Shown here is a 129-nucleotide RNA from Oceanodroma tethys, a member of the family "Small nucleolar RNA SNORA65". By type it is an H/ACA-box small nucleolar RNA. U65 belongs to the H/ACA class of snoRNAs which are thought to guide the sites of modification of uridines to pseudouridines. Its Rfam clan is "SNORA65 clan". Lineage of the source: Eukaryota > Metazoa > Gnathostomata > Aves > Oceanodroma.
RNA sequence: CCUGCCACUGUACCCGUCUUGUACUGCAUUGACUAGUACAGUCCAGAGGUGGGCUGACAGAAGAUGCCAGCUUAGGAAACAGAGUUAUUCUUCUUGUGGGUAACUUUGUGCCAAAAUCUGGGAACAGGC
Dot-bracket structure: ....((.(((.......((.(((......)).).)).......))).)).................((((.((.((...((((((..(((.......)))..))))))..))..)).))))........
The match comes from Rfam's covariance-model search (95 bits).